[Rfam]
RNA: U11 spliceosomal RNA
RNA sequence: AAAAAGGGUCGGUUGGCUAAAUAUGCCACAUGCACCAUUUAGCGUGCGUGCCGUAUGGAUAUCAAGACAUAUGGCCGACAUAAUUUUUGGACCACCGUAGAGGGUUUGGCAGCGCUUUGCCAGACCCUACAA
Dot-bracket structure: .......(((((.((((.......))))((((((((.....).)))))))(((((((..........)))))))))))).................((((.((.((.((((......)))))).))))))..